[Rfam]
Nucleotides: 099
Base pairs, nucleotide, nucleotide: 006094007093008092010090011089012088013087020040021039022038023037024036025035042078043077044076045074046073049072050071051070056065057064
Number, partner (000 for none) and nucleotide at each position: 001000c002000a003000c004000c005000c006094g007093u008092g009000u010090g011089c012088g013087g014000g015000a016000g017000a018000g019000c020040u021039c022038c023037g024036u025035g026000g027000c028000a029000g030000c031000c032000g033000g034000u035025c036024a037023c038022g039021g040020a041000c042078g043077c044076c045074g046073a047000a048000g049072g050071a051070g052000c053000a054000a055000c056065a057064c058000c059000u060000c061000u062000c063000c064057g065056u066000c067000a068000a069000c070051c071050u072049c073046u074045c075000a076044g077043g078042c079000a080000c081000c082000c083000a084000g085000g086000a087013c088012c089011g090010c091000c092008c093007a094006c095000g096000g097000c098000c099000a
A member of the RNA family "Glycine riboswitch aptamer", 99 nucleotides long. Rfam links the family to the GO term glycine biosynthetic process. The match comes from Rfam's covariance-model search (58 bits).